[Rfam]
RNA: Bradyrhizobiaceae sRNA BjrC68
Organism: Xanthobacter dioxanivorans
RNA sequence: AAAGAGCUGUUGAUCGGUUCCGUUCCCCCGCACGGUUCCGAUCAGUGGAAAGGCGUCGGCGCAAGCCGGCGCCUUUUUCCGUUG
Numbered sequence: 001a002a003a004g005a006g007c008u009g010u011u012g013a014u015c016g017g018u019u020c021c022g023u024u025c026c027c028c029c030g031c032a033c034g035g036u037u038c039c040g041a042u043c044a045g046u047g048g049a050a051a052g053g054c055g056u057c058g059g060c061g062c063a064a065g066c067c068g069g070c071g072c073c074u075u076u077u078u079c080c081g082u083u084g
Base pairs, nucleotide, nucleotide: 010045011044012043013042014041015040016039017038050075051074052073053072054071055070056069057068059066060065